[Rfam]
RNA sequence: GCCCAGUGUUCCCAGUGUUCAGACUACCUGUUCAGGAGGCUCCCAGUUGUACAGUAGUCUGCACAUUGGUUAGAUCGGGUC
Numbered sequence: 001g002c003c004c005a006g007u008g009u010u011c012c013c014a015g016u017g018u019u020c021a022g023a024c025u026a027c028c029u030g031u032u033c034a035g036g037a038g039g040c041u042c043c044c045a046g047u048u049g050u051a052c053a054g055u056a057g058u059c060u061g062c063a064c065a066u067u068g069g070u071u072a073g074a075u076c077g078g079g080u081c
Stems, first nucleotide, its partner, number of pairs: 012069007020061007028054004033049002
This 81-nucleotide RNA from Bucorvus abyssinicus belongs to the Rfam family "mir-199 microRNA precursor family". The family has 83 seed sequences and 1,828 matches in Rfam 15.1. Its family is annotated with miRNA-mediated post-transcriptional gene silencing and RISC complex in the Gene Ontology. NCBI's taxonomy places the organism under Eukaryota, Amniota, Sauropsida, Neognathae, Bucorvus. The family's consensus secondary structure was predicted with RNAalifold.